[Rfam]
The family of this 79-nucleotide RNA from Stegodyphus mimosarum is "mir-263 microRNA precursor family".
The family has 52 seed sequences and 368 matches in Rfam 15.1.
RNA sequence: UUUCUGUUGUCCUUGGCACUGUAAGAAUUCACAGAUGGAUAACGAAUCGUGGAUUCUUUAGUGCUAAAGAUAAAAGAAA
Numbered sequence: 001u002u003u004c005u006g007u008u009g010u011c012c013u014u015g016g017c018a019c020u021g022u023a024a025g026a027a028u029u030c031a032c033a034g035a036u037g038g039a040u041a042a043c044g045a046a047u048c049g050u051g052g053a054u055u056c057u058u059u060a061g062u063g064c065u066a067a068a069g070a071u072a073a074a075a076g077a078a079a
Base pairs, nucleotide, nucleotide: 003077004076005075007073008072009071010070013067014066015065016064017063018062020060021059025055026054029052030051031050032049034047
It scores 52 bits against the family's covariance model. Taxonomically the source falls in Stegodyphus (Eukaryota, Metazoa, Protostomia, Eresoidea). The base pairs follow the family's consensus structure, which was predicted with RNAalifold.